RNA sequence: CGACCCUUAAUUAAGCCGAGGGUCACCUAGCCAACUGACGUUGUUAGUGAACCCAAAUUUUUGUUCACACUUAUCAUGGCCAAUCUCACCUAUUGAGGUUGGCCUUUUGUUU
Numbered sequence: 001c002g003a004c005c006c007u008u009a010a011u012u013a014a015g016c017c018g019a020g021g022g023u024c025a026c027c028u029a030g031c032c033a034a035c036u037g038a039c040g041u042u043g044u045u046a047g048u049g050a051a052c053c054c055a056a057a058u059u060u061u062u063g064u065u066c067a068c069a070c071u072u073a074u075c076a077u078g079g080c081c082a083a084u085c086u087c088a089c090c091u092a093u094u095g096a097g098g099u100u101g102g103c104c105u106u107u108u109g110u111u112u
Stems, first nucleotide, its partner, number of pairs: 002024005041079004047068006080102008
This 112-nucleotide RNA sequence from Vibrio galatheae belongs to the Rfam family "Qrr RNA". By type it is a small RNA. Rfam describes the family as follows. This family represents a set of small RNAs (the Qrr RNAs) that are thought to be involved in the regulation of quorum sensing in Vibrio species. It is believed that these RNAs, guided by a protein, Hfq, can mediate the destabilisation of the quorum-sensing master regulators LuxR/HapR mRNAs. Lineage of the source: Bacteria > Pseudomonadota > Gammaproteobacteria > Vibrionaceae > Vibrio. Pairs were carried over by alignment from the consensus structure, which is taken from published work.